[Rfam]
RNA sequence: GUUGAAGCUCCAUCUACAAAUGGAUAACACUUUGGUGUUAGUGUAAGUGUUUAUGAGUUUUUGAUUUAAGGAGCAAUAAUCAACUCUUGAUAGAACAAGAAAUUGGUUAUUGCUCCUU
Numbered sequence: 001g002u003u004g005a006a007g008c009u010c011c012a013u014c015u016a017c018a019a020a021u022g023g024a025u026a027a028c029a030c031u032u033u034g035g036u037g038u039u040a041g042u043g044u045a046a047g048u049g050u051u052u053a054u055g056a057g058u059u060u061u062u063g064a065u066u067u068a069a070g071g072a073g074c075a076a077u078a079a080u081c082a083a084c085u086c087u088u089g090a091u092a093g094a095a096c097a098a099g100a101a102a103u104u105g106g107u108u109a110u111u112g113c114u115c116c117u118u
Base pairs, nucleotide, nucleotide: 009024010023011022012021013020068118069117070116071115072114073113074112075111076110077109078108079107081105082103085100086099087098088097
A member of the RNA family "Plastid-psbA-1 3UTR RNA" from Lumnitzera racemosa, 118 nucleotides long.
The family's RNA type in Rfam is cis-regulatory element.
Rfam's curators write: Plastid psbA-1 is a non-coding RNA (ncRNA) present in plastids. It was identified in inverted repeat sequences in the 3 prime untranslate region (3UTR) of photosystem II quinone-binding protein (psbA).